A member of the RNA family "RNase MRP" from Purpureocillium lilacinum, 445 nucleotides long. Taxonomically the source falls in Purpureocillium (Eukaryota, Fungi, Hypocreomycetidae, Hypocreales). A search with the family's covariance model found it, with a score of 101 bits.
[Rfam]
RNA sequence: CCCUCGCUCAACAAAUCGCAAUUCGAAGCUCACGCACGGAGACACUGCCAAUUGGCGGCGUCUCGCAAACACGCUUUGGGAGAAAGUCCCCGGACGACUCCUCUCGGGGAGCUUGCGGAAACGCGCCGCCAUAAAAGCACUGCGGCUGACCUCUGCGCCUUUGGCCCUCCUGCGGGCUGCGGCCCUGUCCUCCGCCACAUCUGCCUCCUUCGCGUCUUCGCCGAGCCCGUCUGGUCCGUGUCCGGACACCACGGAUGAAGAUAUGAGUCCGAGCCGGUCGCUUGCUGGCGGGACCUCUGCGGCGGGCGCGUGGCUGCGGAUGGAGGGCAACCGUCGCGGUCGCGGGAGCGGUGUCGGGAGCAGAGGACUAGUUGUCGAGGUCCAUAGUUAUGCGAUUGCUCGGCACAUGCUGGGUUACUCGAUGGGGCUUAUUCUUGAGGCGAGG
Numbered sequence: 001c002c003c004u005c006g007c008u009c010a011a012c013a014a015a016u017c018g019c020a021a022u023u024c025g026a027a028g029c030u031c032a033c034g035c036a037c038g039g040a041g042a043c044a045c046u047g048c049c050a051a052u053u054g055g056c057g058g059c060g061u062c063u064c065g066c067a068a069a070c071a072c073g074c075u076u077u078g079g080g081a082g083a084a085a086g087u088c089c090c091c092g093g094a095c096g097a098c099u100c101c102u103c104u105c106g107g108g109g110a111g112c113u114u115g116c117g118g119a120a121a122c123g124c125g126c127c128g129c130c131a132u133a134a135a136a137g138c139a140c141u142g143c144g145g146c147u148g149a150c151c152u153c154u155g156c157g158c159c160u161u162u163g164g165c166c167c168u169c170c171u172g173c174g175g176g177c178u179g180c181g182g183c184c185c186u187g188u189c190c191u192c193c194g195c196c197a198c199a200u201c202u203g204c205c206u207c208c209u210u211c212g213c214g215u216c217u218u219c220g221c222c223g224a225g226c227c228c229g230u231c232u233g234g235u236c237c238g239u240g241u242c243c244g245g246a247c248a249c250c251a252c253g254g255a256u257g258a259a260g261a262u263a264u265g266a267g268u269c270c271g272a273g274c275c276g277g278u279c280g281c282u283u284g285c286u287g288g289c290g291g292g293a294c295c296u297c298u299g300c301g302g303c304g305g306g307c308g309c310g311u312g313g314c315u316g317c318g319g320a321u322g323g324a325g326g327g328c329a330a331c332c333g334u335c336g337c338g339g340u341c342g343c344g345g346g347a348g349c350g351g352u353g354u355c356g357g358g359a360g361c362a363g364a365g366g367a368c369u370a371g372u373u374g375u376c377g378a379g380g381u382c383c384a385u386a387g388u389u390a391u392g393c394g395a396u397u398g399c400u401c402g403g404c405a406c407a408u409g410c411u412g413g414g415u416u417a418c419u420c421g422a423u424g425g426g427g428c429u430u431a432u433u434c435u436u437g438a439g440g441c442g443a444g445g
Stems, first nucleotide, its partner, number of pairs: 002445006008438004014397006023080001024078006039064005045058005084430003088427004114125004292368001295365006303357001305355001314351004336343002399414006